[Rfam]
RNA: Small nucleolar RNA SNORA55
RNA sequence: GCACCUUCAACAACCCUGUCAAUUCUGCUCAGUGUCUGAUAUGGGUCACGCUGGUGCCAUAGAGACUCAAUGUAAAUCCAGAUGGACCUCCUCUUCCUGUGGAGCCUGUCUCUACAACUUUGAUACACAA
Number, nucleotide and partner (000 for none) at each position: 001g057002c056003a055004c054005c053006u000007u000008c000009a000010a000011c000012a000013a046014c045015c044016c043017u041018g040019u000020c038021a037022a000023u000024u000025c000026u000027g000028c000029u000030c000031a000032g000033u000034g000035u000036c000037u021038g020039a000040u018041a017042u000043g016044g015045g014046u013047c000048a000049c000050g000051c000052u000053g005054g004055u003056g002057c001058c000059a000060u000061a000062g000063a000064g000065a000066c000067u123068c122069a121070a120071u000072g118073u000074a000075a000076a000077u000078c000079c000080a111081g110082a109083u108084g107085g106086a000087c104088c000089u000090c102091c101092u000093c000094u000095u000096c000097c000098u000099g000100u000101g091102g090103a000104g087105c000106c085107u084108g083109u082110c081111u080112c000113u000114a000115c000116a000117a000118c072119u000120u070121u069122g068123a067124u000125a000126c000127a000128c000129a000130a000